[Rfam]
RNA sequence: UCUACAUCACCUUGCAGACAAGACCCUAUCAGUAUUGCCUCUGCUUUCACUAGCACUAACAGAGUAGUGCAAUAUUGCUUAUAGGGUCUUGACUGUGAGGGACU
Numbered sequence: 001u002c003u004a005c006a007u008c009a010c011c012u013u014g015c016a017g018a019c020a021a022g023a024c025c026c027u028a029u030c031a032g033u034a035u036u037g038c039c040u041c042u043g044c045u046u047u048c049a050c051u052a053g054c055a056c057u058a059a060c061a062g063a064g065u066a067g068u069g070c071a072a073u074a075u076u077g078c079u080u081a082u083a084g085g086g087u088c089u090u091g092a093c094u095g096u097g098a099g100g101g102a103c104u
Stems, first nucleotide, its partner, number of pairs: 020090010030077009041067005

The family of this 104-nucleotide RNA sequence from Poecilia reticulata is "mir-454 microRNA precursor family". For this family Rfam cites "A microRNA catalog of the developing chicken embryo identified by a deep sequencing approach" (Glazov et al., Genome Res, 2008). The family's consensus secondary structure was predicted with RNAalifold. The family has 20 seed sequences and 696 matches in Rfam 15.1.